The record is a 58-nucleotide RNA sequence from Kribbella sp. VKM Ac-2500, which matches "msiK RNA" in Rfam.
By type it is a cis-regulatory element.
NCBI's taxonomy places the organism under Bacteria, Bacillati, Actinomycetota, Propionibacteriales, Kribbella.

RNA sequence: GCCCGGGGGCCUUUACUCGGAUCGUCCGGCACGUUCCUGCCGGUGAAGGAAGGUACAC
Numbered sequence: 001g002c003c004c005g006g007g008g009g010c011c012u013u014u015a016c017u018c019g020g021a022u023c024g025u026c027c028g029g030c031a032c033g034u035u036c037c038u039g040c041c042g043g044u045g046a047a048g049g050a051a052g053g054u055a056c057a058c
Stems, first nucleotide, its partner, number of pairs: 010049006026043006